[Rfam]
RNA sequence: UGCAGCCUUGUCAAAUUCAGUGUGUUCUUUUCAGUGGACUUCACUGGCCAAAAUGGCUGCCACAGAGAUUGUAGUUCAUGGGCCCCACAUCCUUACACCGUGGGAAGUGGGGAUAAAUAUGUACUACAGACAAGU
Dot-bracket structure: .((((............(((((.((((........))))..)))))..........))))..........((((((......(((((....................)))))........).)))))........